Rfam assigns this 386-nucleotide part of an RNA from uncultured bacterium AD254-A9 to the family "Bacterial large subunit ribosomal RNA".

RNA sequence: GAUAAACAGAGUGAGAAUCUCUGUCACCGAAAGCCUAAGGGUUCCGGAGCCAGGCUUAUCCGCUCCGGGUUAGUCGGUCCCUAAGCCGAGGCCGAAGGGCGUAGGCGAUGGGAAACAGGUUAAUAUUCCUGUACCGCAGUGUGCGCGUUGACCCUGAGGGGGGACGCGGAAGUGAAAGGACCGUCGGGUGGUGGAUUUCCGAUGUAAGGUGGUAGGCGAUGAGAGGGGAUAAAAGACUUCUUUAGCCGAGCGCCGAUGCCGAAGGGGCUUUCGAGCCCCGCAAAGGGUCCGUAAUCAUGCCGCCAAGAAAAGCCUCGUGGGGGAGUUCACAUUGCGACCGUACCGUAAACGGACACACGUAGGCGAGGCGAGAAGCCUAAGGUGCU
Numbered sequence: 001g002a003u004a005a006a007c008a009g010a011g012u013g014a015g016a017a018u019c020u021c022u023g024u025c026a027c028c029g030a031a032a033g034c035c036u037a038a039g040g041g042u043u044c045c046g047g048a049g050c051c052a053g054g055c056u057u058a059u060c061c062g063c064u065c066c067g068g069g070u071u072a073g074u075c076g077g078u079c080c081c082u083a084a085g086c087c088g089a090g091g092c093c094g095a096a097g098g099g100c101g102u103a104g105g106c107g108a109u110g111g112g113a114a115a116c117a118g119g120u121u122a123a124u125a126u127u128c129c130u131g132u133a134c135c136g137c138a139g140u141g142u143g144c145g146c147g148u149u150g151a152c153c154c155u156g157a158g159g160g161g162g163g164a165c166g167c168g169g170a171a172g173u174g175a176a177a178g179g180a181c182c183g184u185c186g187g188g189u190g191g192u193g194g195a196u197u198u199c200c201g202a203u204g205u206a207a208g209g210u211g212g213u214a215g216g217c218g219a220u221g222a223g224a225g226g227g228g229a230u231a232a233a234a235g236a237c238u239u240c241u242u243u244a245g246c247c248g249a250g251c252g253c254c255g256a257u258g259c260c261g262a263a264g265g266g267g268c269u270u271u272c273g274a275g276c277c278c279c280g281c282a283a284a285g286g287g288u289c290c291g292u293a294a295u296c297a298u299g300c301c302g303c304c305a306a307g308a309a310a311a312g313c314c315u316c317g318u319g320g321g322g323g324a325g326u327u328c329a330c331a332u333u334g335c336g337a338c339c340g341u342a343c344c345g346u347a348a349a350c351g352g353a354c355a356c357a358c359g360u361a362g363g364c365g366a367g368g369c370g371a372g373a374a375g376c377c378u379a380a381g382g383u384g385c386u
Stems, first nucleotide, its partner, number of pairs: 006024006025384004033364004039344002044068006053061002075340004080111002085106003089102001091100003115132005135336009145326001153321002158316004166303004172296001178290005183203006204259002208254004215247003222243006230236001265278005350359002366378004
Dot-bracket structure: .....((((((.......))))))((((....((((..((...((((((...((.....)).))))))......((((.((...(((.(.(((....))).).)))...))...(((((........)))))..(((((((((.(.......((...((((....((((..(.....(((((((((((.........))))))((..((((...(((....((((((..(.....).)))))).)))...))))...)).....(((((....))))).......))))).....)...)))).........))))...))....).)))))))))))))..)).....((......)).)))).((((.....))))..))))..